RNA sequence: AGAGGUCUUCUGCAGUUCACAGCAAAAGCACUCAUAGUGCAGCUGUCAGAUUCCAACAAAUCUGCAAGUUCUGCU
Dot-bracket structure: ..............[.[...((((.(((((.......))).]]...((((((......))))))....)).))))
The record is a 75-nucleotide RNA from Crocodylus porosus, which matches "Mammalian CPEB3 ribozyme" in Rfam. The literature on the family includes a 2006 paper in Science by Salehi-Ashtiani et al., "A genomewide search for ribozymes reveals an HDV-like sequence in the human CPEB3 gene". Taxonomically the source falls in Crocodylus (Eukaryota, Gnathostomata, Archelosauria, Longirostres).